Shown here is a 173-nucleotide sequence from Rhodoferax antarcticus, a member of the family "Group II catalytic intron D1-D4-3".
RNA sequence: ACAAGGGCGACCGAGUGUGGGAAGGAAGCGUGGAGCAUAAAUUGUGAGCCGAUGGACAAGAACCGGAUAGAAGGCGACAUACAGCAGGGCGAGCAGGCAAUUUUCUGCAAAGCCCUUAUGACCAAAGUCUGUGUGGCGUAAAUCCGGCGGUUGUGCAAUGAAGGAAUGCGUUC
Dot-bracket structure: ((..((....))..))...........(.(((...(....(((((((((((...........((((((.....(((.(((((((..((((..((((........))))...)))).............))))))).)))..))))))))))).))))))....)....))).)
Annotation
Group II introns are found in rRNA, tRNA and mRNA of organelles in fungi, plants and protists, and also in mRNA in bacteria. Its family is annotated with Group II intron splicing in the Gene Ontology. The match comes from Rfam's covariance-model search (121 bits). The pairing is the family consensus, mapped onto this sequence. The source organism's lineage runs through Bacteria, Pseudomonadati, Pseudomonadota, Rhodoferax and Rhodoferax antarcticus.